[Rfam]
RNA sequence: AAAUGUUCCAUAUCUUAUAACUUGAUCUUGAAGGGUUUUCAUACAUGAAAAUCCUAA
Numbered sequence: 001a002a003a004u005g006u007u008c009c010a011u012a013u014c015u016u017a018u019a020a021c022u023u024g025a026u027c028u029u030g031a032a033g034g035g036u037u038u039u040c041a042u043a044c045a046u047g048a049a050a051a052u053c054c055u056a057a
Stems, first nucleotide, its partner, number of pairs: 033054009
U7 small nuclear RNA: a 57-nucleotide RNA sequence from Sciurus carolinensis.
Rfam describes the family as follows. Animal histone pre-mRNAs are spliced by a different mechanism than nuclear pre-mRNAs and self-splicing introns. This processing involves the U7 snRNP, which contains only one RNA species: U7. The 5' end of U7 RNA is thought to base-pair to a conserved spacer element downstream of the cleavage site in histone pre-mRNA. This family contains a number of annotated U7 pseudogenes.
Rfam 15.1 lists 10,439 matches to the family in 569 species.
A search with the family's covariance model found it, with a score of 34 bits.